[Rfam]
RNA sequence: AGCCCCAAACCCGUAGAUCCGAACUUGUGUCAUUUGACACCACAAGCUUGCAUCUACAGGUCUGCGUCUG
Numbered sequence: 001a002g003c004c005c006c007a008a009a010c011c012c013g014u015a016g017a018u019c020c021g022a023a024c025u026u027g028u029g030u031c032a033u034u035u036g037a038c039a040c041c042a043c044a045a046g047c048u049u050g051c052a053u054c055u056a057c058a059g060g061u062c063u064g065c066g067u068c069u070g
Base pairs, nucleotide, nucleotide: 002068004066006064007063010060011059015055016054017053018052020050021049022048024046025045026044027043028042029041

The family of this 70-nucleotide sequence from Oryzias sinensis is "mir-10 microRNA precursor family". NCBI's taxonomy places the organism under Eukaryota, Eumetazoa, Ctenosquamata, Beloniformes, Oryzias. On this family, see Lee and Ambros, Science 2001: "An extensive class of small RNAs in Caenorhabditis elegans".